U12 minor spliceosomal RNA: a 150-nucleotide RNA from Anolis carolinensis.
Rfam 15.1 lists 2,106 matches to the family in 1,170 species.
Pairs were carried over by alignment from the consensus structure.
[Rfam]
RNA sequence: AUGCCUUAAACUUAUGAGUAAGGAAAAUAACGAUCCGGGGUGACGCCCGGGUCCUCACUGCAAAUGUGAGAGGAAUUUUUGAACGGGUACAGGUCGUCCCCGGAGUGACCCGCCUACUUAGCGGGAUGCUCGGGUGCCAUGAUCUGCCCG
Numbered sequence: 001a002u003g004c005c006u007u008a009a010a011c012u013u014a015u016g017a018g019u020a021a022g023g024a025a026a027a028u029a030a031c032g033a034u035c036c037g038g039g040g041u042g043a044c045g046c047c048c049g050g051g052u053c054c055u056c057a058c059u060g061c062a063a064a065u066g067u068g069a070g071a072g073g074a075a076u077u078u079u080u081g082a083a084c085g086g087g088u089a090c091a092g093g094u095c096g097u098c099c100c101c102g103g104a105g106u107g108a109c110c111c112g113c114c115u116a117c118u119u120a121g122c123g124g125g126a127u128g129c130u131c132g133g134g135u136g137c138c139a140u141g142a143u144c145u146g147c148c149c150g
Base pairs, nucleotide, nucleotide: 004023005022006021007020008019032053033052034051035050036049037048038047039046054070055069056068057067058066084150085149086148087147088146091145092144093143094142095141096140097139100134101133103131104130105129106128107127109125110124111123112122113121
The source organism's lineage runs through Eukaryota, Sarcopterygii, Squamata, Episquamata and Anolis.
Its Rfam clan is "U2 clan".